Rfam assigns this 89-nucleotide RNA sequence from Lutibacter profundi to the family "Flavo-1 RNA". Pairs were carried over by alignment from the consensus structure, which is taken from published work. The organism belongs to Lutibacter, within Bacteria.

RNA sequence: AAUUAACAAACACAGUGCGUUAGCGAUAGCAGUGGUAUCCUUUUUUGAGGGAAACGGAAAAAAAGAUAUAACGGAUAGCGCGACCUGAA
Numbered sequence: 001a002a003u004u005a006a007c008a009a010a011c012a013c014a015g016u017g018c019g020u021u022a023g024c025g026a027u028a029g030c031a032g033u034g035g036u037a038u039c040c041u042u043u044u045u046u047g048a049g050g051g052a053a054a055c056g057g058a059a060a061a062a063a064a065g066a067u068a069u070a071a072c073g074g075a076u077a078g079c080g081c082g083a084c085c086u087g088a089a
Base pairs, nucleotide, nucleotide: 023081024080025079027077028076032072033071037067038066039065043062044061045060046059049055